[Rfam]
RNA sequence: AAGAGAGGCGAUGGCAAGAUGUUGGCAUAGCUGUUGAGCACAGUGUCCUGCUAUGCCUCCAUGUUGCCAUUGCCCUCCUCC
Dot-bracket structure: ....(.(((((((((((.(((..((((((((..................))))))))..))).))))))))))).).....
RNA: mir-31 microRNA precursor family